Shown here is a 136-nucleotide RNA from Haliscomenobacter hydrossis, a member of the family "Group II catalytic intron D1-D4-7". From the family's description: Group II introns are found in rRNA, tRNA and mRNA of organelles in fungi, plants and protists, and also in mRNA in bacteria. On this family, see Bonen and Vogel, Trends Genet 2001: "The ins and outs of group II introns". Rfam links the family to the GO term Group II intron splicing. Rfam 15.1 lists 1,296 matches to the family in 705 species. A search with the family's covariance model found it, with a score of 83 bits. The pairing is the family consensus, mapped onto this sequence. The source organism's lineage runs through Bacteria, Saprospiria, Saprospirales, Haliscomenobacter and Haliscomenobacter hydrossis.
RNA sequence: CCAGUCGUUCCACCGACUGUACCUUAGGAAGAAAUGCGAGGAGGUAACGAAUCGUAUAAAGCCUUCUGACAAUGUACCGAAAUCCACCGAAGCCGUGAGGUAGAAGUGGUUCUGUUAGCAUCCAACGGAAUAGGGC
Numbered sequence: 001c002c003a004g005u006c007g008u009u010c011c012a013c014c015g016a017c018u019g020u021a022c023c024u025u026a027g028g029a030a031g032a033a034a035u036g037c038g039a040g041g042a043g044g045u046a047a048c049g050a051a052u053c054g055u056a057u058a059a060a061g062c063c064u065u066c067u068g069a070c071a072a073u074g075u076a077c078c079g080a081a082a083u084c085c086a087c088c089g090a091a092g093c094c095g096u097g098a099g100g101u102a103g104a105a106g107u108g109g110u111u112c113u114g115u116u117a118g119c120a121u122c123c124a125a126c127g128g129a130a131u132a133g134g135g136c
Stems, first nucleotide, its partner, number of pairs: 002019006028066004034057006043048001084109004093100002111129006